[Rfam]
RNA sequence: AGUUGCAAAUAUCGUGAUGGCAUUGCAAGUUGCCUUGUCAUCCGGAUUUUGUGGUUGA
Numbered sequence: 001a002g003u004u005g006c007a008a009a010u011a012u013c014g015u016g017a018u019g020g021c022a023u024u025g026c027a028a029g030u031u032g033c034c035u036u037g038u039c040a041u042c043c044g045g046a047u048u049u050u051g052u053g054g055u056u057g058a
Base pairs, nucleotide, nucleotide: 001056002055003054004053005052006051007050008049009048012045013044014043016042017041018040019039020038021037022036025033026032